[Rfam]
RNA sequence: AGAGGCCCUCUGUGGCUGGGGUGGAAUGCUUGCCUCGUUGCCAUGGUGACAAGGCAAGCAUUCCACCAGGCCGCUUACACAGCCUGC
Numbered sequence: 001a002g003a004g005g006c007c008c009u010c011u012g013u014g015g016c017u018g019g020g021g022u023g024g025a026a027u028g029c030u031u032g033c034c035u036c037g038u039u040g041c042c043a044u045g046g047u048g049a050c051a052a053g054g055c056a057a058g059c060a061u062u063c064c065a066c067c068a069g070g071c072c073g074c075u076u077a078c079a080c081a082g083c084c085u086g087c
Base pairs, nucleotide, nucleotide: 004084005083006082012074013073014072015071016070017069020067021066022065023064024063025062026061027060028059029058030057031056032055033054037050038049039048040047041046

mir-9195 microRNA precursor family: an 87-nucleotide RNA from Pipistrellus kuhlii. Pairs were carried over by alignment from the consensus structure, which was predicted with RNAalifold. A search with the family's covariance model found it, with a score of 99 bits. Taxonomically the source falls in Pipistrellus (Eukaryota, Metazoa, Chordata, Boreoeutheria). Rfam 15.1 lists 438 matches to the family in 7 species.